[Rfam]
This 116-nucleotide RNA sequence from Microbispora sp. ATCC PTA-5024 belongs to the Rfam family "mraW RNA".
RNA sequence: UCGGUGACGUUCGGCGAGGUCUCCACCCGCUCCCAGUGGCAUCUGAUGCACCUUCCCCGGUGUCAGGCGCCACGGCGGCGACGCGGAUGGGGACCUGGCCGGACGGGUCGGCCCCG
Numbered sequence: 001u002c003g004g005u006g007a008c009g010u011u012c013g014g015c016g017a018g019g020u021c022u023c024c025a026c027c028c029g030c031u032c033c034c035a036g037u038g039g040c041a042u043c044u045g046a047u048g049c050a051c052c053u054u055c056c057c058c059g060g061u062g063u064c065a066g067g068c069g070c071c072a073c074g075g076c077g078g079c080g081a082c083g084c085g086g087a088u089g090g091g092g093a094c095c096u097g098g099c100c101g102g103a104c105g106g107g108u109c110g111g112c113c114c115c116g
Base pairs, nucleotide, nucleotide: 010103011102012101013100014099015098018095019094021092022091023090024089025088027086028085029084030083031081032080034078037072038071039070040069042067043066044065045064046063047062048061049060